The record is a 70-nucleotide RNA from Candidatus Apopatosoma intestinale, which matches "HDV ribozyme from F. prausnitzii" in Rfam. It scores 52 bits against the family's covariance model. For this family Rfam cites "Widespread occurrence of self-cleaving ribozymes" (Webb et al., Science, 2009). The source organism's lineage runs through Bacteria, Bacillati, Clostridia, Eubacteriales and Candidatus Apopatosoma.
[Rfam]
RNA sequence: GUUACGCAAGAUCAAAGCCUCCUCGCGGCGCGUAGCGGGCAACGAAUUUUCAUUCGGCUGAUUUGAUCGA
Number, nucleotide and partner (000 for none) at each position: 001g036002u035003u034004a033005c032006g031007c030008a000009a000010g000011a000012u000013c000014a000015a000016a000017g029018c028019c027020u000021c000022c000023u000024c000025g000026c000027g019028g018029c017030g007031c006032g005033u004034a003035g002036c001037g000038g000039g000040c000041a000042a000043c056044g055045a054046a053047u052048u000049u000050u000051c000052a047053u046054u045055c044056g043057g000058c000059u000060g000061a000062u000063u000064u000065g000066a000067u000068c000069g000070a000